[Rfam]
This 85-nucleotide RNA from Yinghuangia soli belongs to the Rfam family "tRNA". Rfam classes the family as a transfer RNA. The family's consensus secondary structure is taken from published work. It scores 50 bits against the family's covariance model. Transfer RNA (tRNA) molecules are approximately 80 nucleotides in length. Their secondary structure includes four short double-helical elements and three loops (D, anti-codon, and T loops). Further hydrogen bonds mediate the characteristic L-shaped molecular structure. tRNAs have two regions of fundamental functional importance: the anti-codon, which is responsible for specific mRNA codon recognition, and the 3' end, to which the tRNAs corresponding amino acid is attached (by aminoacyl-tRNA synthetases). tRNAs cope with the degeneracy of the genetic code in two manners: having more than one tRNA (with a specific anti-codon) for a particular amino acid; and 'wobble' base-pairing, i.e. permitting non-standard base-pairing at the 3rd anti-codon position.

RNA sequence: GGAAGGUUGCCAGAGCGGUAAUGGAACGGCUUGCUAAGCCGCGGUCGGGGGCGACCCCGCGCAGGUUCGAUCCCUGCACCUUCCG
Number, nucleotide and partner (000 for none) at each position: 001g084002g083003a082004a081005g080006g079007u078008u000009g000010c024011c023012a022013g000014a000015g000016c000017g000018g000019u000020a000021a000022u012023g011024g010025a000026a000027c041028g040029g039030c038031u000032u000033g000034c000035u000036a000037a000038g030039c029040c028041g027042c000043g000044g000045u000046c000047g000048g000049g000050g000051g000052c000053g000054a000055c000056c000057c000058c000059g000060c000061g077062c076063a075064g074065g073066u000067u000068c000069g000070a000071u000072c000073c065074c064075u063076g062077c061078a007079c006080c005081u004082u003083c002084c001085g000